[Rfam]
RNA: Bacterial RNase P class A
Organism: Streptomyces sp. ICBB 8177
RNA sequence: CGAGUCGUGCGGGCGGUCGCGUCAGGGCAUUUGGUCCUGCCGAGGAACGUCCGGGCUCCACAGGGCAGGGUGGUGGGUAACGCCCACCCGGGGUGACCCGCGGGAAAGUGCCACAGAAAGCAGACCGCCGGGGACCUCGGUCCCCGGUAAGGGUGAAACGGUGGUGUAAGAGACCACCAGUGCCCAGGGCGACCUGGGCAGCUAGGUAAACCCCACCCGGAGCAAGGUCAAGAGGGACGCCCCAGGGCGUCCUGCGCGGAUGUUCGAGGGCUGCCCGCCCGAGUCCGCGGGUAGACCGCACGAGGCCGGCGGCAACGCCGGCCCUAGAUGGAUGACCGCCUCCCGGCGGACCGCGAGGUCCGCCGGAGACAGAACCCGGCGUACAGCACGACUCGUCUG
Dot-bracket structure: ((((((((((((((((((.((.((((((.....)))))).))....[[[.[[[[[((((...[[[[.((((((((((.....)))))(((((....)))).)((...(((((............(((((((((((....)))))))))..)).......((((((.......)))))).(((((((((....)))))))).)..)))..)))))))))))))...((((..........................((((((......((((.]]]]))))..)))))).....))))......((((((((....))))))))..........)))))))..................................]]]]]]]].).))))))))))....